[Rfam]
RNA: TPP riboswitch aptamer (THI element)
Organism: Bacillus solimangrovi
RNA sequence: AUUUGAAACUAGGGGUGUCCAAUUAGUUGGGCUGAGAGAGAAACACAGUGAAGUUUCUUGACCCUUCGGACCUGAUCUGGUUCAUACCAGCGUGGGGAAGUUAGAGCAACAAUAC
Numbered sequence: 001a002u003u004u005g006a007a008a009c010u011a012g013g014g015g016u017g018u019c020c021a022a023u024u025a026g027u028u029g030g031g032c033u034g035a036g037a038g039a040g041a042a043a044c045a046c047a048g049u050g051a052a053g054u055u056u057c058u059u060g061a062c063c064c065u066u067c068g069g070a071c072c073u074g075a076u077c078u079g080g081u082u083c084a085u086a087c088c089a090g091c092g093u094g095g096g097g098a099a100g101u102u103a104g105a106g107c108a109a110c111a112a113u114a115c
Stems, first nucleotide, its partner, number of pairs: 007102004011065004017032005039058005071096004077090004